[Rfam]
Record summary: Shown here is a 122-nucleotide RNA sequence from Pseudomonas sp. OIL-1, a member of the family "Ribosomal S15 leader". The family is grouped with related families in Rfam's "Ribosomal Protein S15 Leader clan". The family's consensus secondary structure is taken from published work. The source organism's lineage runs through Bacteria, Gammaproteobacteria, Pseudomonadales, Pseudomonadaceae and Pseudomonas.
RNA sequence: GGUCAUUCCUCGAUUUAAAACACAGGACGAAACGUCCUGGCCUGUUCACUCAGAGGAAAGCUGUCAUGGCACUGAGCGUCGAAGAGAAAGCUGCAAUCGUAACUGAAUAUGCCCGUGGCGAA
Numbered sequence: 001g002g003u004c005a006u007u008c009c010u011c012g013a014u015u016u017a018a019a020a021c022a023c024a025g026g027a028c029g030a031a032a033c034g035u036c037c038u039g040g041c042c043u044g045u046u047c048a049c050u051c052a053g054a055g056g057a058a059a060g061c062u063g064u065c066a067u068g069g070c071a072c073u074g075a076g077c078g079u080c081g082a083a084g085a086g087a088a089a090g091c092u093g094c095a096a097u098c099g100u101a102a103c104u105g106a107a108u109a110u111g112c113c114c115g116u117g118g119c120g121a122a
Stems, first nucleotide, its partner, number of pairs: 007027004012023001049076005055070001

The E. coli Ribosomal S15 gene 5' UTR can form two alternative structures. One that is a series of three hairpins, The other includes a pseudoknot. This structure causes translational regulation of the S15 protein. The alignment of this family contains only the final two hairpins which are conserved in other species, and also includes the complete region that forms the alternate structures.
The literature on the family includes a 1996 paper in Biochimie by Benard et al., "Pseudoknot and translational control in the expression of the S15 ribosomal protein".